[Rfam]
Annotation:
Shown here is an 88-nucleotide RNA from Oryza sativa, a member of the family "Small nucleolar RNA SNORD25". For this family Rfam cites "A mammalian gene with introns instead of exons generating stable RNA products" (Tycowski et al., Nature, 1996).
RNA sequence: CAUGGCGGUCUUGAGCCCUAACAGACCUGAAAUAAUUAUUGCGGAUAUGAUUGCUUAAUUCAGAGCACAUCUAAGGGACUGAGUUGCC
Number, nucleotide and partner (000 for none) at each position: 001c000002a000003u086004g085005g084006c083007g000008g000009u000010c000011u000012u000013g000014a000015g000016c000017c000018c000019u000020a000021a000022c000023a000024g000025a000026c000027c000028u000029g000030a000031a000032a000033u000034a000035a000036u000037u000038a000039u000040u000041g000042c000043g000044g000045a000046u000047a000048u000049g000050a000051u000052u000053g000054c000055u000056u000057a000058a000059u000060u000061c000062a000063g000064a000065g000066c000067a000068c000069a000070u000071c000072u000073a000074a000075g000076g000077g000078a000079c000080u000081g000082a000083g006084u005085u004086g003087c000088c000